[Rfam]
RNA sequence: UUAGCAAUCUUGCCGAAUCCUAUUUAGGUACGGAGGAUUUUUCAUGUUUUGGGGUUAAUCUGCUAUAAGCAGUAGGGAUACCUUCUUAUUCCGCACCCGUCAACUAACUCCGGAGGCAAAAAGGAAGGAGAU
Numbered sequence: 001u002u003a004g005c006a007a008u009c010u011u012g013c014c015g016a017a018u019c020c021u022a023u024u025u026a027g028g029u030a031c032g033g034a035g036g037a038u039u040u041u042u043c044a045u046g047u048u049u050u051g052g053g054g055u056u057a058a059u060c061u062g063c064u065a066u067a068a069g070c071a072g073u074a075g076g077g078a079u080a081c082c083u084u085c086u087u088a089u090u091c092c093g094c095a096c097c098c099g100u101c102a103a104c105u106a107a108c109u110c111c112g113g114a115g116g117c118a119a120a121a122a123g124g125a126a127g128g129a130g131a132u
Base pairs, nucleotide, nucleotide: 011118012117013116014115019028020027031112032111033110034109035108040051052098053097054096060072061071062070063069075092076091077090078089
The record is a 132-nucleotide RNA from Thermoanaerobacterium thermosaccharolyticum, which matches "c-di-AMP riboswitch aptamer (ydaO/yuaA leader)" in Rfam. Its family is annotated with regulation of gene expression and cyclic-di-AMP binding in the Gene Ontology.